[Rfam]
RNA: ASpks TB sRNA
RNA sequence: CUUGACGGAGCCGAGCCACAGCGGCCGGCCCUCCCGGCCCUGCCCGUACGCGGCCAGCAGCGCCUGCGCCUC
Numbered sequence: 001c002u003u004g005a006c007g008g009a010g011c012c013g014a015g016c017c018a019c020a021g022c023g024g025c026c027g028g029c030c031c032u033c034c035c036g037g038c039c040c041u042g043c044c045c046g047u048a049c050g051c052g053g054c055c056a057g058c059a060g061c062g063c064c065u066g067c068g069c070c071u072c
Base pairs, nucleotide, nucleotide: 015025016024017023031068033066035062036061040057041056042055044053045052046051